[Rfam]
RNA sequence: GUUCAGUGACGAUUCCCCAUGCGUGUCAGCUGAUGCCAGUGCCACCUUGUGCCCCCUGCUAGGCGUUCUGCCGUCCGGGCCUGGCACAGGGGCUUCUGGGCGUGAUCAGAGCUCUCUGACUGAGAAC
Numbered sequence: 001g002u003u004c005a006g007u008g009a010c011g012a013u014u015c016c017c018c019a020u021g022c023g024u025g026u027c028a029g030c031u032g033a034u035g036c037c038a039g040u041g042c043c044a045c046c047u048u049g050u051g052c053c054c055c056c057u058g059c060u061a062g063g064c065g066u067u068c069u070g071c072c073g074u075c076c077g078g079g080c081c082u083g084g085c086a087c088a089g090g091g092g093c094u095u096c097u098g099g100g101c102g103u104g105a106u107c108a109g110a111g112c113u114c115u116c117u118g119a120c121u122g123a124g125a126a127c
Base pairs, nucleotide, nucleotide: 001127002126003125004124045091046090047089048088049087050086051085052084053083
Small nucleolar RNA SNORD10: a 127-nucleotide RNA sequence from Chelonia mydas. A search with the family's covariance model found it, with a score of 65 bits. Rfam classes the family as a C/D-box small nucleolar RNA. NCBI's taxonomy places the organism under Eukaryota, Eumetazoa, Testudines, Cheloniidae, Chelonia.